[Rfam]
RNA sequence: UGCCGCACCUCGGGGUGCUUGGGUUGGUCCAAGCUGAGAUGCGACGCUUCGCGAACCCGUCGAACCUGAACCGGUUAACACCGGCGGAGGGAAGGCCAUGGCCCACGGA
Numbered sequence: 001u002g003c004c005g006c007a008c009c010u011c012g013g014g015g016u017g018c019u020u021g022g023g024u025u026g027g028u029c030c031a032a033g034c035u036g037a038g039a040u041g042c043g044a045c046g047c048u049u050c051g052c053g054a055a056c057c058c059g060u061c062g063a064a065c066c067u068g069a070a071c072c073g074g075u076u077a078a079c080a081c082c083g084g085c086g087g088a089g090g091g092a093a094g095g096c097c098a099u100g101g102c103c104c105a106c107g108g109a
Base pairs, nucleotide, nucleotide: 008095009094010093011059012058013057014056016053017034018033019032020031021030041052042051043050044049065090066089067088071084072083073082074081